[Rfam]
RNA sequence: GGCAUCGCGAGUUUCCGUUUGGAGGAGUCUACGGCAAAUCUAUGAGCCAACGAACAGAAACAGCAUACAAGGCCAAGUCUCCGGAUGAGUCAGCACAACAUGACGAAGUCCAGGAUUCGAAGAGAUAUGGUAAAUGCUGCGGUUGUGUAAAGAAAGAUUACGUU
Numbered sequence: 001g002g003c004a005u006c007g008c009g010a011g012u013u014u015c016c017g018u019u020u021g022g023a024g025g026a027g028u029c030u031a032c033g034g035c036a037a038a039u040c041u042a043u044g045a046g047c048c049a050a051c052g053a054a055c056a057g058a059a060a061c062a063g064c065a066u067a068c069a070a071g072g073c074c075a076a077g078u079c080u081c082c083g084g085a086u087g088a089g090u091c092a093g094c095a096c097a098a099c100a101u102g103a104c105g106a107a108g109u110c111c112a113g114g115a116u117u118c119g120a121a122g123a124g125a126u127a128u129g130g131u132a133a134a135u136g137c138u139g140c141g142g143u144u145g146u147g148u149a150a151a152g153a154a155a156g157a158u159u160a161c162g163u164u
Stems, first nucleotide, its partner, number of pairs: 001016002004013001006011001027164001029162001035156001039151001041149004045144004061139006072131003077126005083111004089104004